The record is a 132-nucleotide RNA sequence from Microcebus murinus, which matches "Small nucleolar RNA SNORA72" in Rfam. A reference for the family is Ganot et al. (1997), "The family of box ACA small nucleolar RNAs is defined by an evolutionarily conserved secondary structure and ubiquitous sequence elements essential for RNA accumulation", Genes Dev. It is one of the family's seed sequences. Rfam describes the family as follows. U72 is a member of the H/ACA class of snoRNAs. The snoRNA gene is located in intron 4 of the ribosomal L30 protein gene in human, mouse and chicken. Pairs were carried over by alignment from the consensus structure, which was predicted with PFOLD. By type it is an H/ACA-box small nucleolar RNA. Its family is annotated with nucleolus and RNA processing in the Gene Ontology.
RNA sequence: AUGAGACUAUUAUUACUGUUCUGGUUUUCUAAUAAUCAGGACAGGCUAAACAUUUACUACGUUAAGACCAUGCAUGUGUCUCCAGAAAUCGUUCUUUUCCUAGGUUUAGUUUUAUAAAUGAUGGUGAUAAAC
Numbered sequence: 001a002u003g004a005g006a007c008u009a010u011u012a013u014u015a016c017u018g019u020u021c022u023g024g025u026u027u028u029c030u031a032a033u034a035a036u037c038a039g040g041a042c043a044g045g046c047u048a049a050a051c052a053u054u055u056a057c058u059a060c061g062u063u064a065a066g067a068c069c070a071u072g073c074a075u076g077u078g079u080c081u082c083c084a085g086a087a088a089u090c091g092u093u094c095u096u097u098u099c100c101u102a103g104g105u106u107u108a109g110u111u112u113u114a115u116a117a118a119u120g121a122u123g124g125u126g127a128u129a130a131a132c
Stems, first nucleotide, its partner, number of pairs: 003057001005055001016044011067125004073120001082109001084107003089102001091100001